Notes: A member of the RNA family "c-di-AMP riboswitch aptamer (ydaO/yuaA leader)" from Streptomyces cacaoi, 208 nucleotides long. Rfam describes the family as follows. This family represents a conserved RNA structure found upstream of the ydaO and yuaA genes in Bacillus subtilis and related genes in other bacteria. The ydaO/yuaA element is thought to act as a genetic 'off' switch for the ydaO and yuaA genes in its native state. It is believed that the element may be triggered during osmotic shock leading to activation of ydaO, a predicted amino acid transporter gene, and members of the yuaA-yubG operon which code for KtrA and KtrB K+ transporters. The source organism's lineage runs through Bacteria, Bacillati, Actinomycetes, Kitasatosporales and Streptomyces.
RNA sequence: CGCGAUCAGACGCCGAAUCCUGCCGCUGAUCUGCGAAAACACCACCGUUGGCAGGAGCGGGGGAACCAGGUAAGUGCCCCGGAGGGCCGGACGGCCCGAGGGGCUUGGGGUGAAGCCGUGCUGGACGCGCAGGGCGCGUGACCGCACGGCCGGGCCACUGCUCCGGCCCGAAUCCGACAGCUCACCUCGCAGGCGUAGGAGAGGAACU
Numbered sequence: 001c002g003c004g005a006u007c008a009g010a011c012g013c014c015g016a017a018u019c020c021u022g023c024c025g026c027u028g029a030u031c032u033g034c035g036a037a038a039a040c041a042c043c044a045c046c047g048u049u050g051g052c053a054g055g056a057g058c059g060g061g062g063g064a065a066c067c068a069g070g071u072a073a074g075u076g077c078c079c080c081g082g083a084g085g086g087c088c089g090g091a092c093g094g095c096c097c098g099a100g101g102g103g104c105u106u107g108g109g110g111u112g113a114a115g116c117c118g119u120g121c122u123g124g125a126c127g128c129g130c131a132g133g134g135c136g137c138g139u140g141a142c143c144g145c146a147c148g149g150c151c152g153g154g155c156c157a158c159u160g161c162u163c164c165g166g167c168c169c170g171a172a173u174c175c176g177a178c179a180g181c182u183c184a185c186c187u188c189g190c191a192g193g194c195g196u197a198g199g200a201g202a203g204g205a206a207c208u
Stems, first nucleotide, its partner, number of pairs: 011195004018056008057190006067107005108175003116149006152169004

It scores 63 bits against the family's covariance model.